[Rfam]
RNA sequence: UUGGCAUGAUGAGGAAAGUUAUGAUUUUCUGAUCCACUUGAUGAGAAAUUCCUCCUACUCAUUCUGA
Numbered sequence: 001u002u003g004g005c006a007u008g009a010u011g012a013g014g015a016a017a018g019u020u021a022u023g024a025u026u027u028u029c030u031g032a033u034c035c036a037c038u039u040g041a042u043g044a045g046a047a048a049u050u051c052c053u054c055c056u057a058c059u060c061a062u063u064c065u066g067a
Base pairs, nucleotide, nucleotide: 006062007061008060009059025046026045029040
A member of the RNA family "Small nucleolar RNA Z105" from Panicum hallii, 67 nucleotides long. For this family Rfam cites "The high diversity of snoRNAs in plants: identification and comparative study of 120 snoRNA genes from Oryza sativa" (Chen et al., Nucleic Acids Res, 2003). It scores 70 bits against the family's covariance model. Rfam classes the family as a C/D-box small nucleolar RNA. Pairs were carried over by alignment from the consensus structure, which was predicted with CMfinder.